[Rfam]
RNA sequence: UUUUUGCCCAUCUGGAUGUCGAUCUGAGUCAUACUUCAGAAGUUUAUGACUAGAGACACAUUCAGCUGGGCGCUAGC
Numbered sequence: 001u002u003u004u005u006g007c008c009c010a011u012c013u014g015g016a017u018g019u020c021g022a023u024c025u026g027a028g029u030c031a032u033a034c035u036u037c038a039g040a041a042g043u044u045u046a047u048g049a050c051u052a053g054a055g056a057c058a059c060a061u062u063c064a065g066c067u068g069g070g071c072g073c074u075a076g077c
Stems, first nucleotide, its partner, number of pairs: 005072005012065008023055001027051007